This 70-nucleotide sequence from Phaedon cochleariae belongs to the Rfam family "mir-1000 microRNA precursor family". Rfam links the family to the GO terms miRNA-mediated post-transcriptional gene silencing, RISC complex and negative regulation of glutamate secretion, neurotransmission. NCBI's taxonomy places the organism under Eukaryota, Pancrustacea, Allotriocarida, Chrysomelidae, Phaedon.
Nucleotides: 070
Stems, first nucleotide, its partner, number of pairs: 003068004012059007023048007
Number, partner (000 for none) and nucleotide at each position: 001000g002000c003068c004067u005066g006065u007000g008000a009000u010000a011000u012059u013058g014057u015056c016055c017054u018053g019000u020000c021000a022000c023048a024047g025046c026045a027044g028043u029042a030000c031000u032000g033000u034000u035000c036000a037000a038000u039000g040000g041000u042029u043028a044027c045026u046025g047024c048023u049000u050000g051000g052000g053018c054017g055016g056015g057014a058013c059012a060000u061000g062000c063000u064000c065006a066005c067004a068003g069000u070000c